[Rfam]
RNA: S. pyogenes small RNA Spy491311c
Organism: Streptococcus pyogenes
RNA sequence: CUAGGAAAAAGAUGCAAGUAUCUUAUCUAAAGCGAGUUCGGGGUAGUUAGAGCCGAAUGGUAGGACUGCAGAUUGGCGCUUCCGUUUGGGCAGUGUGAUUAAGUAUAUUUGUCAAUAUUGCCCAAAAAGAUACUAUAUAAAU
Numbered sequence: 001c002u003a004g005g006a007a008a009a010a011g012a013u014g015c016a017a018g019u020a021u022c023u024u025a026u027c028u029a030a031a032g033c034g035a036g037u038u039c040g041g042g043g044u045a046g047u048u049a050g051a052g053c054c055g056a057a058u059g060g061u062a063g064g065a066c067u068g069c070a071g072a073u074u075g076g077c078g079c080u081u082c083c084g085u086u087u088g089g090g091c092a093g094u095g096u097g098a099u100u101a102a103g104u105a106u107a108u109u110u111g112u113c114a115a116u117a118u119u120g121c122c123c124a125a126a127a128a129g130a131u132a133c134u135a136u137a138u139a140a141a142u
Stems, first nucleotide, its partner, number of pairs: 017134008030081005038072002043069006052061003085126012097113003101109002